[Rfam]
MIR529 microRNA precursor family: a 130-nucleotide sequence from Zizania palustris.
RNA sequence: ACAUCAAGGCUAAAGGGAGAAGAGAGAGAGUACAGCCUUAGCUAGCUCACACAUCCAUCUCGAUCUCUUAUGAGAUCUAUAGUUUGAUCAAGGCUGUACCCUCUCUCUUCUUCUCUUAGCUUCUUGAUGC
Numbered sequence: 001a002c003a004u005c006a007a008g009g010c011u012a013a014a015g016g017g018a019g020a021a022g023a024g025a026g027a028g029a030g031u032a033c034a035g036c037c038u039u040a041g042c043u044a045g046c047u048c049a050c051a052c053a054u055c056c057a058u059c060u061c062g063a064u065c066u067c068u069u070a071u072g073a074g075a076u077c078u079a080u081a082g083u084u085u086g087a088u089c090a091a092g093g094c095u096g097u098a099c100c101c102u103c104u105c106u107c108u109u110c111u112u113c114u115c116u117u118a119g120c121u122u123c124u125u126g127a128u129g130c
Stems, first nucleotide, its partner, number of pairs: 005126002009120001012117002015114014030099009
Annotation
Taxonomically the source falls in Zizania (Eukaryota, Viridiplantae, Embryophyta, Oryzoideae). The base pairs follow the family's consensus structure, which was predicted with WAR. The literature on the family includes a 2007 paper in Plant J by Lu et al., "MicroRNAs in loblolly pine (Pinus taeda L.) and their association with fusiform rust gall development". A search with the family's covariance model found it, with a score of 113 bits.